RNA sequence: AUGACCGUACUUGAACAGGAUCUGUUCUAUAGGAUCGUACCUCUGAAUUCUUGAGUUCAAAGGAGACAGGACCAAAAAUCUGGUGGAUGAACCGUGGCUACUUGACCAGAGCGUGAUUAGUGGUUCUGUGGUUUAGUUAACUGGUCCACAUAUCCGCCGAGGAUCGUUCUCAGCUGGUUUGAACUGGCUGCGAUGGUCAAGUAGUUGUCUGACAGAUU
Numbered sequence: 001a002u003g004a005c006c007g008u009a010c011u012u013g014a015a016c017a018g019g020a021u022c023u024g025u026u027c028u029a030u031a032g033g034a035u036c037g038u039a040c041c042u043c044u045g046a047a048u049u050c051u052u053g054a055g056u057u058c059a060a061a062g063g064a065g066a067c068a069g070g071a072c073c074a075a076a077a078a079u080c081u082g083g084u085g086g087a088u089g090a091a092c093c094g095u096g097g098c099u100a101c102u103u104g105a106c107c108a109g110a111g112c113g114u115g116a117u118u119a120g121u122g123g124u125u126c127u128g129u130g131g132u133u134u135a136g137u138u139a140a141c142u143g144g145u146c147c148a149c150a151u152a153u154c155c156g157c158c159g160a161g162g163a164u165c166g167u168u169c170u171c172a173g174c175u176g177g178u179u180u181g182a183a184c185u186g187g188c189u190g191c192g193a194u195g196g197u198c199a200a201g202u203a204g205u206u207g208u209c210u211g212a213c214a215g216a217u218u
Stems, first nucleotide, its partner, number of pairs: 001038002003035001005033002013027006043069003048064005078217005097205012110168004120157004125152001127150005133144004171190008

Rfam assigns this 218-nucleotide sequence from Camellia sinensis to the family "Plant small nucleolar RNA U3". The organism belongs to Camellia, within Eukaryota. Rfam describes the family as follows. Small nucleolar RNAs (snoRNAs) are involved in the processing and modification of rRNA in the nucleolus. There are two main classes of snoRNAs: the box C/D class, and the box H/ACA class. U3 snoRNA is a member of the box C/D class. Indeed, the box C/D element is a subset of the six short sequence elements found in all U3 snoRNAs, namely boxes A, A', B, C, C', and D. The U3 snoRNA secondary structure is characterised by a small 5' domain (with boxes A and A'), and a larger 3' domain (with boxes B, C, C', and D), the two domains being linked by a single-stranded hinge. Boxes B and C form the B/C motif, which appears to be exclusive to U3 snoRNAs, and boxes C' and D form the C'/D motif. The latter is functionally similar to the C/D motifs found in other snoRNAs. The 5' domain and the hinge region act as a pre-rRNA-binding domain. The 3' domain has conserved protein-binding sites. Both the box B/C and box C'/D motifs are sufficient for nuclear retention of U3 snoRNA. The box C'/D motif is also necessary for nucleolar localisation, stability and hyper-methylation of U3 snoRNA. Both box B/C and C'/D motifs are involved in specific protein interactions and are necessary for the rRNA processing functions of U3 snoRNA. A search with the family's covariance model found it, with a score of 173 bits.